[Rfam]
RNA sequence: AAGCAACACUCUGUGGCAGAUAAUCGAAAGUGUCUGUCACAAUUUGAGCUUGCUAGAGCAAUUAAGUCUAACCUAUUCCGGUAUUCUCUUCUCUGUGAGAUAUGCCGUUAUAUAGACGUAAACAUU
Numbered sequence: 001a002a003g004c005a006a007c008a009c010u011c012u013g014u015g016g017c018a019g020a021u022a023a024u025c026g027a028a029a030g031u032g033u034c035u036g037u038c039a040c041a042a043u044u045u046g047a048g049c050u051u052g053c054u055a056g057a058g059c060a061a062u063u064a065a066g067u068c069u070a071a072c073c074u075a076u077u078c079c080g081g082u083a084u085u086c087u088c089u090u091c092u093c094u095g096u097g098a099g100a101u102a103u104g105c106c107g108u109u110a111u112a113u114a115g116a117c118g119u120a121a122a123c124a125u126u
Base pairs, nucleotide, nucleotide: 009048010047011046012041013040014039015038017036018035019034020033021032022031064119066117067116068115069114070113074112075111076110079107080106081105082104087100088099089098090097
A member of the RNA family "Small nucleolar RNA SNORA28" from Erinaceus europaeus, 126 nucleotides long. A reference for the family is Huttenhofer et al. (2001), "RNomics: an experimental approach that identifies 201 candidates for novel, small, non-messenger RNAs in mouse", EMBO J. The family is grouped with related families in Rfam's "SNORA28 clan". The organism belongs to Erinaceus, within Eukaryota. About the family: ACA28 is a member of the H/ACA class of snoRNA that guide the sites of modification of uridines to pseudouridines.